[Rfam]
RNA sequence: UGGUCACUUCAAAGUGGGCUCAUGCAGUUGUGAAACUAAGAGCUCUUAACACUGUGAUGAAAUAUGGAUAUUCUCUGUAGAACACUAUAACACUAAAUUAGUGUUAUGUUUUCCUAAGAAGAAGUAUAA
Numbered sequence: 001u002g003g004u005c006a007c008u009u010c011a012a013a014g015u016g017g018g019c020u021c022a023u024g025c026a027g028u029u030g031u032g033a034a035a036c037u038a039a040g041a042g043c044u045c046u047u048a049a050c051a052c053u054g055u056g057a058u059g060a061a062a063u064a065u066g067g068a069u070a071u072u073c074u075c076u077g078u079a080g081a082a083c084a085c086u087a088u089a090a091c092a093c094u095a096a097a098u099u100a101g102u103g104u105u106a107u108g109u110u111u112u113c114c115u116a117a118g119a120a121g122a123a124g125u126a127u128a129a
Base pairs, nucleotide, nucleotide: 003058004057005056006055007054014047016045017044018043019042020041021040023039026037027036072122073121074120076118079115080114082112087107088106089105090104091103092102093101094100

The record is a 129-nucleotide RNA sequence from Otolemur garnettii, which matches "Small nucleolar RNA SNORA25" in Rfam.
Rfam classes the family as an H/ACA-box small nucleolar RNA.
From the family's description: ACA25 is a member of the H/ACA class of snoRNA that guide the sites of modification of uridines to pseudouridines.
Rfam links the family to the GO terms nucleolus and RNA processing.
NCBI's taxonomy places the organism under Eukaryota, Bilateria, Gnathostomata, Amniota, Otolemur.
The family's consensus secondary structure was predicted with RNAfold.
It scores 102 bits against the family's covariance model.